A member of the RNA family "Bacterial small signal recognition particle RNA" from Streptomyces filamentosus, 99 nucleotides long.
On this family, see Rosenblad et al., Nucleic Acids Res 2003: "SRPDB: Signal Recognition Particle Database".
By type it is a non-coding RNA gene.
The match comes from Rfam's covariance-model search (66 bits).
RNA sequence: CGGAGCCCCUCACGCGGCGCUAUCUGACUGAACUCCCCCAGGGCCGGAAGGCAGCAAGGGUAGGUCGGCUCUGGCGGGUGCGUGGGGGGCGCUUGCGUU
Numbered sequence: 001c002g003g004a005g006c007c008c009c010u011c012a013c014g015c016g017g018c019g020c021u022a023u024c025u026g027a028c029u030g031a032a033c034u035c036c037c038c039c040a041g042g043g044c045c046g047g048a049a050g051g052c053a054g055c056a057a058g059g060g061u062a063g064g065u066c067g068g069c070u071c072u073g074g075c076g077g078g079u080g081c082g083u084g085g086g087g088g089g090c091g092c093u094u095g096c097g098u099u
Stems, first nucleotide, its partner, number of pairs: 004093003008089001009086006015078001018076005024068006035060003043052003